[Rfam]
Nucleotides: 113
Stems, first nucleotide, its partner, number of pairs: 001027003004023005010018002082109003085105005091100003
Number, partner (000 for none) and nucleotide at each position: 001027u002026g003025g004023g005022u006021g007020g008019c009000a010018u011017c012000c013000u014000a015000u016000g017011g018010a019008g020007c021006u022005a023004u024000a025003c026002c027001a028000u029000a030000u031000a032000a033000c034000u035000a036000a037000c038000u039000g040000c041000c042000g043000g044000u045000a046000g047000c048000g049000u050000g051000c052000u053000g054000a055000a056000a057000g058000u059000a060000u061000u062000u063000g064000u065000u066000g067000a068000u069000u070000u071000a072000g073000a074000a075000g076000a077000g078000a079000a080000c081000a082109c083108c084107g085105c086104u087103u088102g089101g090000a091100u092099c093098c094000g095000c096000g097000a098093g099092g100091a101089c102088c103087g104086g105085g106000a107084c108083g109082g110000a111000a112000g113000g

Description: This 113-nucleotide RNA sequence from Propionispora sp. 2/2-37 belongs to the Rfam family "pan motif". The family's RNA type in Rfam is cis-regulatory element. It scores 45 bits against the family's covariance model.